Rfam assigns this 98-nucleotide sequence from Thermophagus xiamenensis to the family "TPP riboswitch aptamer (THI element)".

[Rfam]
Nucleotides: 098
Base pairs, nucleotide, nucleotide: 006086007085008084009083010082011049012048013047014046016043017035018034019033020032021031054079055078056077057076061072062071063070
Number, partner (000 for none) and nucleotide at each position: 001000a002000a003000a004000c005000a006086c007085u008084g009083u010082u011049a012048g013047g014046g015000g016043u017035g018034c019033u020032c021031c022000g023000a024000a025000a026000u027000a028000a029000a030000c031021g032020g033019g034018g035017c036000u037000g038000a039000g040000a041000a042000c043016a044000u045000a046014c047013c048012c049011u050000u051000g052000a053000a054079c055078c056077u057076g058000a059000c060000a061072u062071g063070u064000a065000u066000a067000a068000u069000a070063a071062c072061a073000g074000c075000g076057u077056a078055g079054g080000g081000a082010a083009a084008c085007a086006g087000u088000a089000g090000u091000u092000u093000g094000a095000g096000u097000g098000a